[Rfam]
About this RNA: This 79-nucleotide RNA sequence from Sphingomonas alpina belongs to the Rfam family "ZMP/ZTP riboswitch aptamer (pfl RNA motif)". Lineage of the source: Bacteria > Alphaproteobacteria > Sphingomonadales > Sphingomonadaceae > Sphingomonas. A reference for the family is Jones and Ferre-D'Amare (2015), "Recognition of the bacterial alarmone ZMP through long-distance association of two RNA subdomains", Nat Struct Mol Biol.
RNA sequence: CUGGCGUCGCGUGACUGGCGAAGCGUGGAGCACCACGGGGAAGCGCGACCGAUCCAUGCCGCUCGCCUGGGCAGACCUC
Numbered sequence: 001c002u003g004g005c006g007u008c009g010c011g012u013g014a015c016u017g018g019c020g021a022a023g024c025g026u027g028g029a030g031c032a033c034c035a036c037g038g039g040g041a042a043g044c045g046c047g048a049c050c051g052a053u054c055c056a057u058g059c060c061g062c063u064c065g066c067c068u069g070g071g072c073a074g075a076c077c078u079c
Stems, first nucleotide, its partner, number of pairs: 006049007015040002017067005025036004057073004
The base pairs follow the family's consensus structure, which is taken from published work.